Rfam assigns this 600-nucleotide part of an RNA from archaeon HR01 to the family "Archaeal large subunit ribosomal RNA". The match comes from Rfam's covariance-model search (2028 bits). The family is grouped with related families in Rfam's "LSU clan". The literature on the family includes a 2001 paper in Science by Yusupov et al., "Crystal structure of the ribosome at 5.5 A resolution". Pairs were carried over by alignment from the consensus structure, which is taken from published work.
RNA sequence: UGGCCAGUGCGGGUACUCGAAAGCCGGGUUCAACCGGCAUAAGGGCCCGUAAACGCCGGGAGUAACUCUGACUCUCGAGCUAAAGGGAGUCGUUAAACCCGGCUGUAUGCGGGGAAUUCCAGAGCCCCCAACUACCUUAAAAGGUAACAAUGUUGGGGGUUAUGAGGAAGACCCGCAGGAAACCCCUGCCAAAGUGGUAGCCAUGCUCACCGAUUUCUCCGACAUAAUCGACCCAGAGGAACUUCCUAACAGGCUUAGCCAGCUCAAGUGGCACAUAACAGGGUUCGUCGACGGAGACGGAAGCUUCCCGAUAAUCCUUUCACCCGACGGUGGAAAAAAAUUCGGCUGGCUAAUCCAGCCAAGGUUUGAGGUGGAGCUUCGAAGCAGCACAGACUCCGAGGUCAUGCUCAAGGUGAUCUGCAGAGCCAUGCAGAUUAGGCCAAAGAUAUUCGCCGGCGAAAACUACGUCAAACUCAUCGUUACCAACAGGAGGAUGCUGCUGGAGAAGGUGGUUCCCUUCUUCGAAAAAUACAGGCCAGCGGUCAAGUGGCUGGACUUCAAAAUAAUGAGCGAGGUUGCGCAAGACCUUCAGCAGAAGAG
Numbered sequence: 001u002g003g004c005c006a007g008u009g010c011g012g013g014u015a016c017u018c019g020a021a022a023g024c025c026g027g028g029u030u031c032a033a034c035c036g037g038c039a040u041a042a043g044g045g046c047c048c049g050u051a052a053a054c055g056c057c058g059g060g061a062g063u064a065a066c067u068c069u070g071a072c073u074c075u076c077g078a079g080c081u082a083a084a085g086g087g088a089g090u091c092g093u094u095a096a097a098c099c100c101g102g103c104u105g106u107a108u109g110c111g112g113g114g115a116a117u118u119c120c121a122g123a124g125c126c127c128c129c130a131a132c133u134a135c136c137u138u139a140a141a142a143g144g145u146a147a148c149a150a151u152g153u154u155g156g157g158g159g160u161u162a163u164g165a166g167g168a169a170g171a172c173c174c175g176c177a178g179g180a181a182a183c184c185c186c187u188g189c190c191a192a193a194g195u196g197g198u199a200g201c202c203a204u205g206c207u208c209a210c211c212g213a214u215u216u217c218u219c220c221g222a223c224a225u226a227a228u229c230g231a232c233c234c235a236g237a238g239g240a241a242c243u244u245c246c247u248a249a250c251a252g253g254c255u256u257a258g259c260c261a262g263c264u265c266a267a268g269u270g271g272c273a274c275a276u277a278a279c280a281g282g283g284u285u286c287g288u289c290g291a292c293g294g295a296g297a298c299g300g301a302a303g304c305u306u307c308c309c310g311a312u313a314a315u316c317c318u319u320u321c322a323c324c325c326g327a328c329g330g331u332g333g334a335a336a337a338a339a340a341u342u343c344g345g346c347u348g349g350c351u352a353a354u355c356c357a358g359c360c361a362a363g364g365u366u367u368g369a370g371g372u373g374g375a376g377c378u379u380c381g382a383a384g385c386a387g388c389a390c391a392g393a394c395u396c397c398g399a400g401g402u403c404a405u406g407c408u409c410a411a412g413g414u415g416a417u418c419u420g421c422a423g424a425g426c427c428a429u430g431c432a433g434a435u436u437a438g439g440c441c442a443a444a445g446a447u448a449u450u451c452g453c454c455g456g457c458g459a460a461a462a463c464u465a466c467g468u469c470a471a472a473c474u475c476a477u478c479g480u481u482a483c484c485a486a487c488a489g490g491a492g493g494a495u496g497c498u499g500c501u502g503g504a505g506a507a508g509g510u511g512g513u514u515c516c517c518u519u520c521u522u523c524g525a526a527a528a529a530u531a532c533a534g535g536c537c538a539g540c541g542g543u544c545a546a547g548u549g550g551c552u553g554g555a556c557u558u559c560a561a562a563a564u565a566a567u568g569a570g571c572g573a574g575g576u577u578g579c580g581c582a583a584g585a586c587c588u589u590c591a592g593c594a595g596a597a598g599a600g
Stems, first nucleotide, its partner, number of pairs: 002057003007054002009050005016045003023038005058076006